Rfam assigns this 132-nucleotide RNA sequence from Cervus elaphus to the family "Small nucleolar RNA SNORA38". Rfam links the family to the GO terms Cajal body, RNA processing and nucleolus. It scores 125 bits against the family's covariance model. Lineage of the source: Eukaryota > Opisthokonta > Boreoeutheria > Cervus > Cervus elaphus. Rfam's curators write: ACA38 is a member of the H/ACA class of snoRNA that guide the sites of modification of uridines to pseudouridines.

RNA sequence: CCCUCCUACAAAGGCGAGUCUAUGGUUUCCUAUCUUUUGGACACAUAAGAAUUGGAGGCAAGGAAAUGUGGAUUUGGAGAAAUCUGGUACCAGCUUCCUUGGGGCAGGCUCAACAUCAACUAUCCCACAUAG
Numbered sequence: 001c002c003c004u005c006c007u008a009c010a011a012a013g014g015c016g017a018g019u020c021u022a023u024g025g026u027u028u029c030c031u032a033u034c035u036u037u038u039g040g041a042c043a044c045a046u047a048a049g050a051a052u053u054g055g056a057g058g059c060a061a062g063g064a065a066a067u068g069u070g071g072a073u074u075u076g077g078a079g080a081a082a083u084c085u086g087g088u089a090c091c092a093g094c095u096u097c098c099u100u101g102g103g104g105c106a107g108g109c110u111c112a113a114c115a116u117c118a119a120c121u122a123u124c125c126c127a128c129a130u131a132g
Stems, first nucleotide, its partner, number of pairs: 002058005016044001018042004024030002070125003074122001092110005098104001